Description:
This 97-nucleotide sequence from Beta vulgaris belongs to the Rfam family "Small nucleolar RNA Z161/Z228". Its family is annotated with RNA processing and nucleolus in the Gene Ontology. The family is grouped with related families in Rfam's "SNORD35 clan". The literature on the family includes a 2003 paper in Nucleic Acids Res by Chen et al., "The high diversity of snoRNAs in plants: identification and comparative study of 120 snoRNA genes from Oryza sativa". The base pairs follow the family's consensus structure, which was predicted with PFOLD. Rfam 15.1 lists 630 matches to the family in 214 species. The family's RNA type in Rfam is C/D-box small nucleolar RNA. Lineage of the source: Eukaryota > Tracheophyta > Caryophyllales > Betoideae > Beta vulgaris. A search with the family's covariance model found it, with a score of 56 bits.
RNA sequence: AGAUCAAGUGAUGAUAUUGGAUAUAUUCUCACGACGGUCGUCUGAGGACACAAAUUUGUGUCUUUUUUGAUGAAUUUAAUCCUAAUUUCUGAUGAUU
Dot-bracket structure: ((.(............................................((......))...................................).))